Rfam assigns this 200-nucleotide RNA from Medicago truncatula to the family "MIR2619 microRNA precursor family".
RNA sequence: AAAUAGCCCCUAUGUAUUGAAUCUUUGGCAAUUUUGGCAUCCAAUGCCACUUUUGACUUAGUCUUCGCUGACGUGGCACCCACAAUAGUCGACACGUGGCACCUCACUUAAGUAAUGUGGGUGCCACGUCAACGAAGACUAAGUCAAAAGUGGUCUUCGGGGCCAAAAAUGCCAAAGAUCCAAUACAUAGGGGACUGUUU
Numbered sequence: 001a002a003a004u005a006g007c008c009c010c011u012a013u014g015u016a017u018u019g020a021a022u023c024u025u026u027g028g029c030a031a032u033u034u035u036g037g038c039a040u041c042c043a044a045u046g047c048c049a050c051u052u053u054u055g056a057c058u059u060a061g062u063c064u065u066c067g068c069u070g071a072c073g074u075g076g077c078a079c080c081c082a083c084a085a086u087a088g089u090c091g092a093c094a095c096g097u098g099g100c101a102c103c104u105c106a107c108u109u110a111a112g113u114a115a116u117g118u119g120g121g122u123g124c125c126a127c128g129u130c131a132a133c134g135a136a137g138a139c140u141a142a143g144u145c146a147a148a149a150g151u152g153g154u155c156u157u158c159g160g161g162g163c164c165a166a167a168a169a170u171g172c173c174a175a176a177g178a179u180c181c182a183a184u185a186c187a188u189a190g191g192g193g194a195c196u197g198u199u200u
Base pairs, nucleotide, nucleotide: 001200002199004197005196006195008193011189012188013187014186015185016184017183018182019181021179022178023177024176025175026174027173028172029171030170032168033167034166035165036164037163038162040160041159043157044156071129072128074126075125076124077123078122079121080120081119

The base pairs follow the family's consensus structure, which was predicted with RNAalifold.